[Rfam]
RNA sequence: AUGAAGGUAGUGGGAGAGAGACAGAUUAUUGUCCGCCGAAGAAGCAAAUCUUUCAGGUAACAGGACCGCUAUUGGACG
Numbered sequence: 001a002u003g004a005a006g007g008u009a010g011u012g013g014g015a016g017a018g019a020g021a022c023a024g025a026u027u028a029u030u031g032u033c034c035g036c037c038g039a040a041g042a043a044g045c046a047a048a049u050c051u052u053u054c055a056g057g058u059a060a061c062a063g064g065a066c067c068g069c070u071a072u073u074g075g076a077c078g
Stems, first nucleotide, its partner, number of pairs: 006073008020033004035058003038054002042052003
Glycine riboswitch aptamer: a 78-nucleotide sequence from Clostridium disporicum. Taxonomically the source falls in Clostridium (Bacteria, Bacillati, Eubacteriales, Clostridiaceae). The match comes from Rfam's covariance-model search (58 bits).